The family of this 79-nucleotide RNA from Medicago truncatula is "MIR5269 microRNA precursor family". The family's consensus secondary structure was predicted with RNAalifold. Rfam 15.1 lists 389 matches to the family in 6 species. The match comes from Rfam's covariance-model search (72 bits). Lineage of the source: Eukaryota > Euphyllophyta > Papilionoideae > Trifolieae > Medicago.
[Rfam]
RNA sequence: UUGGUUUAAAUCAUUGUGGGUCUACACAUUGGAAAUAGAACUCAUGCAAAGUGGUAGGACAUGCAUUGAUUCCAUCCAA
Numbered sequence: 001u002u003g004g005u006u007u008a009a010a011u012c013a014u015u016g017u018g019g020g021u022c023u024a025c026a027c028a029u030u031g032g033a034a035a036u037a038g039a040a041c042u043c044a045u046g047c048a049a050a051g052u053g054g055u056a057g058g059a060c061a062u063g064c065a066u067u068g069a070u071u072c073c074a075u076c077c078a079a
Stems, first nucleotide, its partner, number of pairs: 001079004006074001009071005015065004022057003025053003029049003